The record is a 97-nucleotide RNA from Carpinus fangiana, which matches "Small nucleolar RNA snoR27" in Rfam. Lineage of the source: Eukaryota > Embryophyta > Euphyllophyta > Betulaceae > Carpinus.
[Rfam]
RNA sequence: AAUGGAUCAAAGAUGCACAUUUAUACAAUACUGUGUUAUCGUUUCUGAAAAAUCCUCAAAAGGACUUGAAGAUAACUGUAAUUUACUGAGAUCCCCU
Numbered sequence: 001a002a003u004g005g006a007u008c009a010a011a012g013a014u015g016c017a018c019a020u021u022u023a024u025a026c027a028a029u030a031c032u033g034u035g036u037u038a039u040c041g042u043u044u045c046u047g048a049a050a051a052a053u054c055c056u057c058a059a060a061a062g063g064a065c066u067u068g069a070a071g072a073u074a075a076c077u078g079u080a081a082u083u084u085a086c087u088g089a090g091a092u093c094c095c096c097u
Stems, first nucleotide, its partner, number of pairs: 001097001004094004

For this family Rfam cites "Multiple snoRNA gene clusters from Arabidopsis" (Brown et al., RNA, 2001). Gene Ontology terms of the family: RNA processing and nucleolus.